[Rfam]
RNA sequence: AUAUUCCUUCGGGGCAGGGUGAAAUUCCCUACCGGCGGUGAUGGGGCUUCUGCCCCAAAGCCCGUGACCCGUUUGCCGGCUGUUUUUGGCAAGCGGUGGAUCCGGCGUGAUUCCGGGGCCGACAGUAUAGUCUGGAUGGGAGAAGGAAGCA
Number, nucleotide and partner (000 for none) at each position: 001a000002u000003a000004u148005u147006c146007c145008u144009u143010c142011g000012g000013g000014g000015c000016a000017g029018g028019g027020u000021g000022a000023a000024a000025u000026u000027c019028c018029c017030u000031a131032c130033c121034g120035g065036c064037g063038g062039u000040g000041a000042u000043g000044g000045g000046g000047c000048u000049u000050c000051u000052g000053c000054c000055c000056c000057a000058a000059a000060g119061c118062c038063c037064g036065u035066g000067a000068c000069c096070c095071g094072u093073u092074u091075g000076c000077c000078g000079g000080c000081u000082g000083u000084u000085u000086u000087u000088g000089g000090c000091a074092a073093g072094c071095g070096g069097u000098g000099g000100a000101u117102c116103c115104g114105g113106c000107g000108u000109g000110a000111u000112u000113c105114c104115g103116g102117g101118g061119c060120c034121g033122a000123c134124a133125g132126u000127a000128u000129a000130g032131u031132c125133u124134g123135g000136a000137u000138g000139g000140g000141a000142g010143a009144a008145g007146g006147a005148a004149g000150c000151a000
A member of the RNA family "FMN riboswitch aptamer (RFN element)" from Neobacillus piezotolerans, 151 nucleotides long. Lineage of the source: Bacteria > Bacillati > Bacillota > Bacillaceae > Neobacillus. The match comes from Rfam's covariance-model search (115 bits).